[Rfam]
RNA sequence: AUCCAUAUAUCGCUGAAUUUCUUAUGAAAACGGGGAAACCAAUUUUUUGUGAUCAUUCACUUGGGGUGAAUCCUUCAUGGUAGGGCGAUGCUUUCACGUCCGAAUCCGACAGCUAACCUCGUAAGCGUUUGAAAGAAACAAC
Numbered sequence: 001a002u003c004c005a006u007a008u009a010u011c012g013c014u015g016a017a018u019u020u021c022u023u024a025u026g027a028a029a030a031c032g033g034g035g036a037a038a039c040c041a042a043u044u045u046u047u048u049g050u051g052a053u054c055a056u057u058c059a060c061u062u063g064g065g066g067u068g069a070a071u072c073c074u075u076c077a078u079g080g081u082a083g084g085g086c087g088a089u090g091c092u093u094u095c096a097c098g099u100c101c102g103a104a105u106c107c108g109a110c111a112g113c114u115a116a117c118c119u120c121g122u123a124a125g126c127g128u129u130u131g132a133a134a135g136a137a138a139c140a141a142c
Base pairs, nucleotide, nucleotide: 011127012126013125014124018029019028020027030122031121032120033119034118035117040063041062064107065106066105072080073079083101084100085099086098
Rfam assigns this 142-nucleotide sequence from Pullulanibacillus pueri to the family "c-di-AMP riboswitch aptamer (ydaO/yuaA leader)". The pairing is the family consensus, mapped onto this sequence. A search with the family's covariance model found it, with a score of 94 bits. Gene Ontology terms of the family: cyclic-di-AMP binding and regulation of gene expression. The organism belongs to Pullulanibacillus, within Bacteria.